RNA sequence: GUGGGCAUCGUCACCGUGCAGCCGACGAGCGUGCCGGUGGUCGUCGAACUGCCGGGCCGCACCAGCGCGUAUCUCGUCGCGCAGGUGCGGGCGCGGGUCGACGGCAUCGUGCAGCGCCGCAAUUUCACCGAAGGCUCCGAAGUCAAGGCCGGCCAGCAUCUGUACAAGAUCGA
Numbered sequence: 001g002u003g004g005g006c007a008u009c010g011u012c013a014c015c016g017u018g019c020a021g022c023c024g025a026c027g028a029g030c031g032u033g034c035c036g037g038u039g040g041u042c043g044u045c046g047a048a049c050u051g052c053c054g055g056g057c058c059g060c061a062c063c064a065g066c067g068c069g070u071a072u073c074u075c076g077u078c079g080c081g082c083a084g085g086u087g088c089g090g091g092c093g094c095g096g097g098u099c100g101a102c103g104g105c106a107u108c109g110u111g112c113a114g115c116g117c118c119g120c121a122a123u124u125u126c127a128c129c130g131a132a133g134g135c136u137c138c139g140a141a142g143u144c145a146a147g148g149c150c151g152g153c154c155a156g157c158a159u160c161u162g163u164a165c166a167a168g169a170u171c172g173a
Stems, first nucleotide, its partner, number of pairs: 004053004008047003011043001013041004019036001021034002023031002055150004059143002063139001065137001067135002072133001074131002078093003082089001095120001097118001099116002102114001104112003157172001159169003